[Rfam]
Record summary: Shown here is a 140-nucleotide sequence from Neogale vison, a member of the family "Small Cajal body specific RNA 11". A search with the family's covariance model found it, with a score of 148 bits. By type it is a small Cajal body RNA. For this family Rfam cites "Cajal body-specific small nuclear RNAs: a novel class of 2'-O-methylation and pseudouridylation guide RNAs" (Darzacq et al., EMBO J, 2002). Rfam describes the family as follows. scaRNAs are a specific class of small nuclear RNAs which localise to the Cajal bodies and guide the modification of RNA polymerase II transcribed spliceosomal RNAs U1, U2, U4, U5 and U12. ACA57 belongs to the H/ACA box class of guide RNAs as it has the predicted hairpin-hinge-hairpin-tail structure, conserved H/ACA-box motifs and is found associated with GAR1. ACA57 is predicted to guide the pseudouridylation of the U5 spliceosomal RNA at position U43.
RNA sequence: CUGUCCUUGCCAGUGCUUUUUCUGCUCUCCUGUUCUCAGCUCUGACAGGGGAGUCUGGCAGGACACACAGAAGUCUCCCUCUCAGUUUAGGAGAGCCUUCCUAAGAGUAGGGCUGGCUCUUAAAGGCACGAGAGGACAAU
Numbered sequence: 001c002u003g004u005c006c007u008u009g010c011c012a013g014u015g016c017u018u019u020u021u022c023u024g025c026u027c028u029c030c031u032g033u034u035c036u037c038a039g040c041u042c043u044g045a046c047a048g049g050g051g052a053g054u055c056u057g058g059c060a061g062g063a064c065a066c067a068c069a070g071a072a073g074u075c076u077c078c079c080u081c082u083c084a085g086u087u088u089a090g091g092a093g094a095g096c097c098u099u100c101c102u103a104a105g106a107g108u109a110g111g112g113c114u115g116g117c118u119c120u121u122a123a124a125g126g127c128a129c130g131a132g133a134g135g136a137c138a139a140u
Stems, first nucleotide, its partner, number of pairs: 002065006010058002024054003028050006078135006085127004091121007099112005